[Rfam]
Shown here is a 79-nucleotide RNA sequence from Pelomonas sp. Root1444, a member of the family "SAH (S-adenosyl-L-homocysteine) riboswitch aptamer". The organism belongs to Roseateles, within Bacteria. Pairs were carried over by alignment from the consensus structure, which is taken from published work.

RNA sequence: GCUUCCGAGGAGCGUUGCAACCUCAGCACCUUUGAGGCCAGGCUCGGAACCUAUCCCACUGCAACUGCGCUCACCCGCU
Numbered sequence: 001g002c003u004u005c006c007g008a009g010g011a012g013c014g015u016u017g018c019a020a021c022c023u024c025a026g027c028a029c030c031u032u033u034g035a036g037g038c039c040a041g042g043c044u045c046g047g048a049a050c051c052u053a054u055c056c057c058a059c060u061g062c063a064a065c066u067g068c069g070c071u072c073a074c075c076c077g078c079u
Stems, first nucleotide, its partner, number of pairs: 003049006021037006
A search with the family's covariance model found it, with a score of 66 bits.